[Rfam]
RNA sequence: GCUCAGUGUGGGUUAACCGGGUGAUGCUGCCCUCCUGGCUCUACCACUAAUGACCCUGGGCAGGGUCCUCGACACCACUGCCUCGGUUACCCAUCGGUGCAGUGCGGGUAGUAGUACCAAUGCUAAUUAGUUGUGAGGACCAACU
Numbered sequence: 001g002c003u004c005a006g007u008g009u010g011g012g013u014u015a016a017c018c019g020g021g022u023g024a025u026g027c028u029g030c031c032c033u034c035c036u037g038g039c040u041c042u043a044c045c046a047c048u049a050a051u052g053a054c055c056c057u058g059g060g061c062a063g064g065g066u067c068c069u070c071g072a073c074a075c076c077a078c079u080g081c082c083u084c085g086g087u088u089a090c091c092c093a094u095c096g097g098u099g100c101a102g103u104g105c106g107g108g109u110a111g112u113a114g115u116a117c118c119a120a121u122g123c124u125a126a127u128u129a130g131u132u133g134u135g136a137g138g139a140c141c142a143a144c145u
Base pairs, nucleotide, nucleotide: 002060003059004058005057006056008054009053019032020031021030022029070133071132072131073130076099077098078097079096080092106123108121109120111118
RNA: Small nucleolar RNA ACA59